[Rfam]
RNA sequence: GGGACCCGCUCGCCGAACUCUGCCGGCGGCCCGUUGCGUUCAGUGCAAGGCAGAGACGGAGGACCCACCUGGCGGCCGCGCCCGCUCUCCCGAGCGGAGGUGCGCCCUUGGGGUGAAGCCCAUGCCCAUCGGCAGGGCCGGAUGGCUCGCAUCCGAACCCGACAGCUAACUUCGCAGGCGCCAACGAGAGGCCCA
Numbered sequence: 001g002g003g004a005c006c007c008g009c010u011c012g013c014c015g016a017a018c019u020c021u022g023c024c025g026g027c028g029g030c031c032c033g034u035u036g037c038g039u040u041c042a043g044u045g046c047a048a049g050g051c052a053g054a055g056a057c058g059g060a061g062g063a064c065c066c067a068c069c070u071g072g073c074g075g076c077c078g079c080g081c082c083c084g085c086u087c088u089c090c091c092g093a094g095c096g097g098a099g100g101u102g103c104g105c106c107c108u109u110g111g112g113g114u115g116a117a118g119c120c121c122a123u124g125c126c127c128a129u130c131g132g133c134a135g136g137g138c139c140g141g142a143u144g145g146c147u148c149g150c151a152u153c154c155g156a157a158c159c160c161g162a163c164a165g166c167u168a169a170c171u172u173c174g175c176a177g178g179c180g181c182c183a184a185c186g187a188g189a190g191g192c193c194c195a
Stems, first nucleotide, its partner, number of pairs: 011180004018055007057174005066110002111160003119137003140154004
A member of the RNA family "c-di-AMP riboswitch aptamer (ydaO/yuaA leader)" from Sinomonas sp. R1AF57, 195 nucleotides long. A reference for the family is Barrick et al. (2004), "New RNA motifs suggest an expanded scope for riboswitches in bacterial genetic control", Proc Natl Acad Sci U S A. The organism belongs to Sinomonas, within Bacteria.